Overview: A member of the RNA family "Mu-gpT-DE RNA", 54 nucleotides long. It is one of the family's seed sequences. It is annotated as a small RNA.

[Rfam]
RNA sequence: CCUUGACAGUCACAUGGUGUGGCUGACAUUUGCCAAGACAAGGAGUUUCUUAUG
Numbered sequence: 001c002c003u004u005g006a007c008a009g010u011c012a013c014a015u016g017g018u019g020u021g022g023c024u025g026a027c028a029u030u031u032g033c034c035a036a037g038a039c040a041a042g043g044a045g046u047u048u049c050u051u052a053u054g
Base pairs, nucleotide, nucleotide: 002042003041004040005039007025008024009023010022011021